Shown here is a 123-nucleotide sequence from Streptomyces phaeofaciens, a member of the family "SAM (S-adenosyl methionine) riboswitch aptamer". The literature on the family includes a 2008 paper in RNA by Weinberg et al., "The aptamer core of SAM-IV riboswitches mimics the ligand-binding site of SAM-I riboswitches". It scores 93 bits against the family's covariance model.

RNA sequence: GGUCAUGAGCGUCAGCGACAAGCCCUGGCUUGCUGACCGGCAACCCUCGCGCCGCGGUGGGGUGCCCCAGGUGACGACCGGACCGAUGCCGUUCCGGCAAGGACGAUUCGGUAAGCGCGAGGG
Number, nucleotide and partner (000 for none) at each position: 001g079002g078003u077004c076005a000006u000007g000008a000009g038010c000011g037012u036013c035014a034015g033016c032017g000018a000019c000020a000021a030022g029023c000024c000025c000026u000027g000028g000029c022030u021031u000032g016033c015034u014035g013036a012037c011038c009039g066040g065041c064042a000043a000044c062045c061046c060047u000048c057049g000050c000051g000052c000053c000054g000055c000056g000057g048058u000059g000060g046061g045062g044063u000064g041065c040066c039067c000068c000069a000070g000071g000072u000073g000074a000075c000076g004077a003078c002079c001080g000081g000082a112083c111084c110085g109086a108087u000088g000089c000090c000091g000092u000093u000094c000095c000096g000097g000098c000099a000100a000101g000102g000103a000104c000105g000106a000107u000108u086109c085110g084111g083112u082113a000114a000115g000116c000117g000118c000119g000120a000121g000122g000123g000